[Rfam]
RNA sequence: AGACGCCGAGCGCUGCCACUACGGGCGGGCCGUUACAUGACUGUGGCAGCGACGGGGGACCCAAAACCGACAGCACCAUGUCGGACGGGGUGAAGUCAGUAGCAACUGACCGGGCAGACCUCGAGCCCGAACCCGACAGCUAACUUCGCAGGCGUCGAGAGGUUAU
Numbered sequence: 001a002g003a004c005g006c007c008g009a010g011c012g013c014u015g016c017c018a019c020u021a022c023g024g025g026c027g028g029g030c031c032g033u034u035a036c037a038u039g040a041c042u043g044u045g046g047c048a049g050c051g052a053c054g055g056g057g058g059a060c061c062c063a064a065a066a067c068c069g070a071c072a073g074c075a076c077c078a079u080g081u082c083g084g085a086c087g088g089g090g091u092g093a094a095g096u097c098a099g100u101a102g103c104a105a106c107u108g109a110c111c112g113g114g115c116a117g118a119c120c121u122c123g124a125g126c127c128c129g130a131a132c133c134c135g136a137c138a139g140c141u142a143a144c145u146u147c148g149c150a151g152g153c154g155u156c157g158a159g160a161g162g163u164u165a166u
Stems, first nucleotide, its partner, number of pairs: 004154004011051009053148005062087001088134003096109004112128004

A member of the RNA family "c-di-AMP riboswitch aptamer (ydaO/yuaA leader)" from Micrococcales bacterium KH10, 166 nucleotides long. NCBI's taxonomy places the organism under Bacteria, Bacillati, Actinomycetota, Actinomycetes, Micrococcales. Its family is annotated with cyclic-di-AMP binding and regulation of gene expression in the Gene Ontology.